Annotation:
Rfam assigns this 68-nucleotide sequence from Agrobacterium sp. AGB01 to the family "S-element". Rfam's curators write: This family represents a group of S-elements from p42d and related plasmids. The S-element has multiple functions and is believed to act as a negative regulator of repC transcription, be required for efficient replication and act as a translational enhancer of repC.
RNA sequence: AGUCAAGAGUUUUCGGCAUCUUUUUGGUGAGCGGAUUUCUGUUGCCUUAAAAGAGGUAAAAGAUGAUG
Numbered sequence: 001a002g003u004c005a006a007g008a009g010u011u012u013u014c015g016g017c018a019u020c021u022u023u024u025u026g027g028u029g030a031g032c033g034g035a036u037u038u039c040u041g042u043u044g045c046c047u048u049a050a051a052a053g054a055g056g057u058a059a060a061a062g063a064u065g066a067u068g
Stems, first nucleotide, its partner, number of pairs: 009064005018057003022054004029047001031045004

Rfam links the family to the GO terms translation regulator activity and mRNA transcription. The literature on the family includes a 2004 paper in Mol Microbiol by Venkova-Canova et al., "Two discrete elements are required for the replication of a repABC plasmid: an antisense RNA and a stem-loop structure". The family's RNA type in Rfam is cis-regulatory element. The base pairs follow the family's consensus structure, which is taken from published work.